[Rfam]
RNA sequence: CUACUCCCUCUGUCCCAUAAUAUAAGAGUGUUUUCGACACUACGGUAGUGUCAAAAACGCUAUUAUAUUAUGGGAUGGAGGGAGUAA
Numbered sequence: 001c002u003a004c005u006c007c008c009u010c011u012g013u014c015c016c017a018u019a020a021u022a023u024a025a026g027a028g029u030g031u032u033u034u035c036g037a038c039a040c041u042a043c044g045g046u047a048g049u050g051u052c053a054a055a056a057a058c059g060c061u062a063u064u065a066u067a068u069u070a071u072g073g074g075a076u077g078g079a080g081g082g083a084g085u086a087a
Stems, first nucleotide, its partner, number of pairs: 003085003007081005013075005019069007027061008036052006